[Rfam]
RNA sequence: ACUUAACUGAUGAAAAGAACUUAGUAAAGAACUAGUAUUUAUAUUAGAGAAAUCCUGGCUGGUGAAAAGGAUGAGGACUAGUUGCUUGAAUUACAAUCUUGGAGGUUAGACGUAUGCCUGCGUUAAAGGUUUGAGGUGCAGAAUCGUUGAUUCUGAACUAAGGUGGUACCGCGAUAUAUUCGUCCUUAGA
Numbered sequence: 001a002c003u004u005a006a007c008u009g010a011u012g013a014a015a016a017g018a019a020c021u022u023a024g025u026a027a028a029g030a031a032c033u034a035g036u037a038u039u040u041a042u043a044u045u046a047g048a049g050a051a052a053u054c055c056u057g058g059c060u061g062g063u064g065a066a067a068a069g070g071a072u073g074a075g076g077a078c079u080a081g082u083u084g085c086u087u088g089a090a091u092u093a094c095a096a097u098c099u100u101g102g103a104g105g106u107u108a109g110a111c112g113u114a115u116g117c118c119u120g121c122g123u124u125a126a127a128g129g130u131u132u133g134a135g136g137u138g139c140a141g142a143a144u145c146g147u148u149g150a151u152u153c154u155g156a157a158c159u160a161a162g163g164u165g166g167u168a169c170c171g172c173g174a175u176a177u178a179u180u181c182g183u184c185c186u187u188a189g190a
Stems, first nucleotide, its partner, number of pairs: 007105002015100004027087003031083001040076001042074001052072005111122003139155007160187004171183004
RNA: T-box leader